[Rfam]
RNA sequence: CUUUUGAUGUGAUCGCACCUUUUUAGGUGAGGAAAGUCCAUACUCGCACAAGCUGAGAUGCUUGUAGUGUUCAUGCUAAACGAAACAAUAAGUUUAGGUACACCUAUGUUGUAACGGCAGACAAAUAUUCCUAAGUACUCUGUAUAUGGAAUAUUAUAUCUUGAAAGUGCCACAGUGACGGAGUUUUCAUAGAAAUAUGAGAAGUGGAACGCGGUAAACCCCUUGAGCGAGCAAUUCAAAUUUUGGUAGAAGCACUUAUUUCAUAGAAAUGAAUAUAGAAAUAGGAGACAAUAAUAUUGUCUAGACAGAUGAUCACAGCUAUCUUUACGAAAGUUCUAGUUCUUGUUUGAGUAAGGAUAGAGACAGAAUAUGGCUUAUGAUA
Numbered sequence: 001c002u003u004u005u006g007a008u009g010u011g012a013u014c015g016c017a018c019c020u021u022u023u024u025a026g027g028u029g030a031g032g033a034a035a036g037u038c039c040a041u042a043c044u045c046g047c048a049c050a051a052g053c054u055g056a057g058a059u060g061c062u063u064g065u066a067g068u069g070u071u072c073a074u075g076c077u078a079a080a081c082g083a084a085a086c087a088a089u090a091a092g093u094u095u096a097g098g099u100a101c102a103c104c105u106a107u108g109u110u111g112u113a114a115c116g117g118c119a120g121a122c123a124a125a126u127a128u129u130c131c132u133a134a135g136u137a138c139u140c141u142g143u144a145u146a147u148g149g150a151a152u153a154u155u156a157u158a159u160c161u162u163g164a165a166a167g168u169g170c171c172a173c174a175g176u177g178a179c180g181g182a183g184u185u186u187u188c189a190u191a192g193a194a195a196u197a198u199g200a201g202a203a204g205u206g207g208a209a210c211g212c213g214g215u216a217a218a219c220c221c222c223u224u225g226a227g228c229g230a231g232c233a234a235u236u237c238a239a240a241u242u243u244u245g246g247u248a249g250a251a252g253c254a255c256u257u258a259u260u261u262c263a264u265a266g267a268a269a270u271g272a273a274u275a276u277a278g279a280a281a282u283a284g285g286a287g288a289c290a291a292u293a294a295u296a297u298u299g300u301c302u303a304g305a306c307a308g309a310u311g312a313u314c315a316c317a318g319c320u321a322u323c324u325u326u327a328c329g330a331a332a333g334u335u336c337u338a339g340u341u342c343u344u345g346u347u348u349g350a351g352u353a354a355g356g357a358u359a360g361a362g363a364c365a366g367a368a369u370a371u372g373g374c375u376u377a378u379g380a381u382a
Stems, first nucleotide, its partner, number of pairs: 004382001007378001008317007016029005034376003038373005043231005048065006071226003075222001076097006098115001099113004104108001116221002119161003123157001128151004135145003167219002169215003184203008235251003255285007286302006319360009
RNA: Bacterial RNase P class B